[Rfam]
RNA sequence: CAGAGAAGUCAAUGAUGGUUAGACCCAAAAUGUCUGAACCUGUCUGAAGCAUCUCAGUGAUGCAGUUUGGUGUAGUUCUGAGACUUCUCCAAGA
Numbered sequence: 001c002a003g004a005g006a007a008g009u010c011a012a013u014g015a016u017g018g019u020u021a022g023a024c025c026c027a028a029a030a031u032g033u034c035u036g037a038a039c040c041u042g043u044c045u046g047a048a049g050c051a052u053c054u055c056a057g058u059g060a061u062g063c064a065g066u067u068u069g070g071u072g073u074a075g076u077u078c079u080g081a082g083a084c085u086u087c088u089c090c091a092a093g094a
Stems, first nucleotide, its partner, number of pairs: 004088007
Small nucleolar RNA SNORD91 family: a 94-nucleotide RNA sequence from Dipodomys ordii. For this family Rfam cites "RNomics: an experimental approach that identifies 201 candidates for novel, small, non-messenger RNAs in mouse" (Huttenhofer et al., EMBO J, 2001). It is annotated as a C/D-box small nucleolar RNA. Gene Ontology terms of the family: nucleolus and RNA processing. The family has 24 seed sequences and 977 matches in Rfam 15.1.